Shown here is a 94-nucleotide sequence from Capra hircus, a member of the family "Small nucleolar RNA U2-19". A reference for the family is Tycowski et al. (2004), "Guide RNAs with 5' Caps and Novel Box C/D snoRNA-like Domains for Modification of snRNAs in Metazoa", Curr Biol. Pairs were carried over by alignment from the consensus structure, which is taken from published work. Gene Ontology terms of the family: RNA processing and nucleolus. The match comes from Rfam's covariance-model search (65 bits). The family has 29 seed sequences and 1,147 matches in Rfam 15.1. The family's RNA type in Rfam is C/D-box small nucleolar RNA.
RNA sequence: UAUACCUACAGAAAAUAGCCAAAUCUGAGCAUCAGAAGAUGCUAGUCUACCUACCGCCCAGUCUAUCUGAUGCGUGAUCUCUUUAGUUCUGAGA
Number, nucleotide and partner (000 for none) at each position: 001u000002a000003u000004a000005c000006c000007u000008a000009c000010a000011g000012a000013a000014a000015a000016u000017a000018g000019c000020c000021a000022a000023a000024u000025c000026u000027g000028a000029g073030c072031a071032u070033c069034a000035g000036a000037a064038g063039a062040u061041g000042c000043u000044a000045g000046u000047c000048u000049a000050c000051c000052u000053a000054c000055c000056g000057c000058c000059c000060a000061g040062u039063c038064u037065a000066u000067c000068u000069g033070a032071u031072g030073c029074g000075u000076g000077a000078u000079c000080u000081c000082u000083u000084u000085a000086g000087u000088u000089c000090u000091g000092a000093g000094a000